[Rfam]
RNA sequence: UGGCGGGUUGGGUUGUUACAGUAUAGCUGUGAAGUGCUAUAUUGUCCUUUCCCCUGCUGAAAGCAACUGUUUCCUACAAUCUCUGUCUGGCUCAUUUCUGUAGUUAGACAGGGACGCUUGGUCUCAAACAU
Numbered sequence: 001u002g003g004c005g006g007g008u009u010g011g012g013u014u015g016u017u018a019c020a021g022u023a024u025a026g027c028u029g030u031g032a033a034g035u036g037c038u039a040u041a042u043u044g045u046c047c048u049u050u051c052c053c054c055u056g057c058u059g060a061a062a063g064c065a066a067c068u069g070u071u072u073c074c075u076a077c078a079a080u081c082u083c084u085g086u087c088u089g090g091c092u093c094a095u096u097u098c099u100g101u102a103g104u105u106a107g108a109c110a111g112g113g114a115c116g117c118u119u120g121g122u123c124u125c126a127a128a129c130a131u
Stems, first nucleotide, its partner, number of pairs: 003057005018045010082112004087107004
Dot-bracket structure: ..(((((..........((((((((((........)))))))))).......)))))........................((((.((((.............)))).))))...................

This 131-nucleotide sequence from Molossus molossus belongs to the Rfam family "Small nucleolar RNA SNORA63".
The family's consensus secondary structure was predicted with PFOLD.
The family's RNA type in Rfam is H/ACA-box small nucleolar RNA.
For this family Rfam cites "Three small nucleolar RNAs that are involved in ribosomal RNA precursor processing" (Mishra and Eliceiri, Proc Natl Acad Sci U S A, 1997).
It scores 93 bits against the family's covariance model.